This 124-nucleotide sequence from Oscillibacter hominis belongs to the Rfam family "Ribosomal protein L10 leader". A search with the family's covariance model found it, with a score of 60 bits. Rfam's curators write: This family is a putative r-protein leader autoregulatory structure found in B. subtilis and other low-GC Gram-positive bacteria. It is located in the 5' untranslated regions of mRNAs encoding ribosomal proteins L10 and L12 (rplJ-rplL). A Rho-independent transcription terminator structure that is probably involved in regulation is included at the 3' end.
[Rfam]
RNA sequence: UAUACUAAGUGAUGCGUUCCAAAGACAGCAGGAGGGGGUUCCCCAUAAGACCUGCCGAGGACAGCAAGUGAUUGCUACACCGUCCUUGUGUCUUUGCGCACGAGGACGGUUUUCUUUUUGAACG
Number, nucleotide and partner (000 for none) at each position: 001u000002a000003u000004a000005c000006u000007a000008a000009g000010u000011g000012a000013u000014g000015c000016g000017u000018u000019c000020c000021a000022a000023a000024g000025a000026c000027a000028g055029c054030a053031g052032g051033a000034g044035g043036g042037g000038g000039u000040u000041c000042c036043c035044c034045a000046u000047a000048a000049g000050a000051c032052c031053u030054g029055c028056c000057g000058a000059g000060g000061a000062c000063a000064g000065c000066a000067a000068g000069u000070g000071a000072u000073u000074g000075c000076u000077a000078c000079a000080c109081c108082g107083u106084c105085c104086u103087u102088g101089u100090g099091u098092c000093u000094u000095u000096g000097c000098g091099c090100a089101c088102g087103a086104g085105g084106a083107c082108g081109g080110u000111u000112u000113u000114c000115u000116u000117u000118u000119u000120g000121a000122a000123c000124g000